Shown here is a 243-nucleotide RNA sequence from Thalictrum thalictroides, a member of the family "Group I catalytic intron". Taxonomically the source falls in Thalictrum (Eukaryota, Viridiplantae, Euphyllophyta, Spermatophyta).
RNA sequence: CAAUUGUUUUAAUAACAAAUGACGUGAGUUGGGUUAAAGAUAGCCCAAAUAAAACCGGAUGAAUUGCAAGGAAGACCUCAGAUAGAGGUUAAUUUGCAGCGAAGCUUAUGAAGCAUAAUAAGUAAUAAGAACGUUCAACGACUAGAUGGUGAGUAAUGCAAACAAUAAUCCAUCCACGAGCGUCCGGGGUCAAGAGCUCAGCACUUGAUUAUGACAUAGUCUGUACAAUAGUGUAAACUAUUG
Dot-bracket structure: ....(.(.(..............).).)...(((((....))))).........[[[[.[[...((((((....(((((.....)))))...))))))((.....(....................).....))...(.(((((....................................]].]]]]..(((((.((...)).)))))........)))))).....(((((....)))))..
For this family Rfam cites "Crystal structure of a group I ribozyme domain: principles of RNA packing" (Cate et al., Science, 1996).